Annotation
This 579-nucleotide part of an RNA from Methanoculleus marisnigri belongs to the Rfam family "Archaeal large subunit ribosomal RNA". For this family Rfam cites "Crystal structure of the ribosome at 5.5 A resolution" (Yusupov et al., Science, 2001). The organism belongs to Methanoculleus marisnigri, within Archaea. The base pairs follow the family's consensus structure, which is taken from published work.
[Rfam]
RNA sequence: CUCCAGAUGGGAAGUGAAGACCCCGUGGAGCUUUACUGCAGCCUGUCGCUGUGUUACGGUAUUCCUUGCGCAGCGUAGAUGGGAGGCGUCGAUCCACCCCUUCCGGGGGGUGGGGAGCCAACAAUGAGACACCAUCCUUGGUUUACUGUAACACUAACUCAAACCUGAGGACAACGAUAGGUAGGCAGUUUGGGUGGGGCGCCACACCCUCGAAAAAAUAUCAAGGGUGCCCUAUGGUCAACUCAUGUGAGUCAGAAACUCACAGGAGAGUGUCAAGAGCAUAAGUUGGCCUGACGCGAUUUCGCAUAGCAAGAAAUCGCGAGAGGAAACUCGGGUCUAACGAACCAAUGAGCCUUAUUGAUGAGGGCCAUUGACGACAGAAAAGCUACCCCGGGGAUAACAGAGUCGUCGCCGGCAAGAGCACAUAUCGACCCGGCGGCUUGCUACCUCGAUGUCGGUUCUUUCCAUCCUGGCCGUGCAGCAGCGGCCAAGGGUGAGGUUGUUCGCCUAUUAAAGGGGAUCGUGAGCUGGGUUUAGACCGUCGUGAGACAGGUCGGUUACUAUCUAUCUGGAGUGUAA
Number, nucleotide and partner (000 for none) at each position: 001c574002u573003c572004c571005a570006g569007a568008u567009g000010g566011g565012a564013a000014g561015u560016g000017a000018a000019g000020a000021c000022c395023c394024c393025g392026u000027g391028g390029a387030g386031c385032u384033u383034u000035a189036c188037u187038g186039c000040a000041g000042c181043c180044u179045g178046u177047c176048g175049c000050u000051g154052u153053g152054u151055u150056a149057c148058g147059g146060u145061a144062u000063u000064c141065c140066u000067u000068g137069c000070g000071c000072a000073g000074c000075g000076u000077a000078g136079a135080u134081g133082g132083g000084a000085g119086g118087c117088g000089u000090c000091g000092a000093u000094c000095c000096a000097c110098c109099c108100c107101u106102u000103c000104c000105g000106g101107g100108g099109g098110g097111u000112g000113g000114g000115g000116a000117g087118c086119c085120a000121a000122c000123a000124a000125u000126g000127a000128g000129a000130c000131a000132c082133c081134a080135u079136c078137c068138u000139u000140g065141g064142u000143u000144u061145a060146c059147u058148g057149u056150a055151a054152c053153a052154c051155u000156a000157a000158c169159u168160c167161a166162a000163a000164c000165c000166u161167g160168a159169g158170g000171a000172c000173a000174a000175c048176g047177a046178u045179a044180g043181g042182u000183a000184g000185g000186c038187a037188g036189u035190u000191u000192g205193g203194g202195u201196g000197g000198g000199g000200c000201g195202c194203c193204a000205c192206a228207c227208c226209c225210u224211c000212g000213a000214a000215a000216a000217a000218a000219u000220a000221u000222c000223a000224a210225g209226g208227g207228u206229g000230c000231c335232c334233u000234a000235u000236g000237g290238u289239c288240a287241a286242c285243u269244c268245a000246u264247g263248u262249g261250a260251g259252u000253c000254a000255g000256a000257a000258a000259c251260u250261c249262a248263c247264a246265g000266g000267a000268g244269a243270g280271u279272g000273u000274c000275a000276a000277g000278a000279g271280c270281a000282u000283a000284a000285g242286u241287u240288g239289g238290c237291c000292u000293g000294a000295c321296g320297c319298g318299a317300u316301u315302u314303c313304g000305c000306a000307u000308a000309g000310c000311a000312a000313g303314a302315a301316a300317u299318c298319g297320c296321g295322a000323g332324a000325g330326g000327a000328a000329a000330c325331u000332c323333g000334g232335g231336u000337c000338u000339a000340a000341c000342g000343a000344a000345c000346c373347a372348a371349u370350g369351a000352g368353c367354c366355u365356u364357a000358u000359u000360g000361a000362u000363g000364a356365g355366g354367g353368c352369c350370a349371u348372u347373g346374a000375c000376g000377a000378c000379a000380g000381a000382a000383a033384a032385g031386c030387u029388a000389c000390c028391c027392c025393g024394g023395g022396g000397a000398u000399a000400a000401c000402a000403g000404a445405g444406u443407c000408g442409u439410c438411g437412c436413c435414g434415g433416c000417a000418a000419g429420a428421g000422c000423a000424c000425a000426u000427a000428u420429c419430g000431a000432c000433c415434c414435g413436g412437c411438g410439g409440c000441u000442u408443g406444c405445u404446a000447c000448c000449u000450c000451g000452a000453u000454g000455u000456c531457g529458g528459u527460u526461c523462u520463u519464u518465c517466c516467a000468u000469c494470c493471u000472g000473g488474c487475c486476g485477u484478g000479c000480a000481g000482c000483a000484g477485c476486g475487g474488c473489c000490a000491a000492g000493g470494g469495u000496g000497a509498g508499g507500u506501u000502g000503u000504u000505c000506g500507c499508c498509u497510a000511u000512u000513a000514a000515a000516g466517g465518g464519g463520a462521u000522c000523g461524u000525g000526a460527g459528c458529u457530g000531g456532g000533u000534u000535u000536a000537g555538a554539c553540c552541g550542u549543c548544g000545u000546g000547a000548g543549a542550c541551a000552g540553g539554u538555c537556g000557g000558u000559u000560a015561c014562u000563a000564u012565c011566u010567a008568u007569c006570u005571g004572g003573a002574g001575u000576g000577u000578a000579a000